[Rfam]
Shown here is a 119-nucleotide RNA from Streptomyces wuyuanensis, a member of the family "Streptomyces-metK RNA". The source organism's lineage runs through Bacteria, Bacillati, Actinomycetota, Kitasatosporales and Streptomyces.

RNA sequence: GCGAGACGCUGGUCCGGUCGCCGGGAGUGCCCGAUAAACUGUCCCUCGGAACGACGCGGGGCGCAGCCCCCCGGCCGGUCCGCCAAUGAUCAGCCAGCAGCCGCUGCAACCCCAGGGAG
Numbered sequence: 001g002c003g004a005g006a007c008g009c010u011g012g013u014c015c016g017g018u019c020g021c022c023g024g025g026a027g028u029g030c031c032c033g034a035u036a037a038a039c040u041g042u043c044c045c046u047c048g049g050a051a052c053g054a055c056g057c058g059g060g061g062c063g064c065a066g067c068c069c070c071c072c073g074g075c076c077g078g079u080c081c082g083c084c085a086a087u088g089a090u091c092a093g094c095c096a097g098c099a100g101c102c103g104c105u106g107c108a109a110c111c112c113c114a115g116g117g118a119g
Base pairs, nucleotide, nucleotide: 048081049080050079052077053076056075058072059071060070061069095106096105097104098103
It is annotated as a small RNA. It scores 112 bits against the family's covariance model. Pairs were carried over by alignment from the consensus structure, which is taken from published work.